[Rfam]
RNA sequence: AACCGAGGUGACUCCCUCUCCACGGGGCCUGAUGGGGCCUCUUCAGGAACGUAGCAACUUGGAAUAAAAUCUGGCCUCUGGGUUUUGGGUGCGAAGGUGAUGCGUGAGGUCCUUGGCCUGCCUUUGGCCGCUCACUUAU
Numbered sequence: 001a002a003c004c005g006a007g008g009u010g011a012c013u014c015c016c017u018c019u020c021c022a023c024g025g026g027g028c029c030u031g032a033u034g035g036g037g038c039c040u041c042u043u044c045a046g047g048a049a050c051g052u053a054g055c056a057a058c059u060u061g062g063a064a065u066a067a068a069a070u071c072u073g074g075c076c077u078c079u080g081g082g083u084u085u086u087g088g089g090u091g092c093g094a095a096g097g098u099g100a101u102g103c104g105u106g107a108g109g110u111c112c113u114u115g116g117c118c119u120g121c122c123u124u125u126g127g128c129c130g131c132u133c134a135c136u137u138a139u
Stems, first nucleotide, its partner, number of pairs: 003062005009056002019048003022042001024041006074129001077127002080122002087113002092108001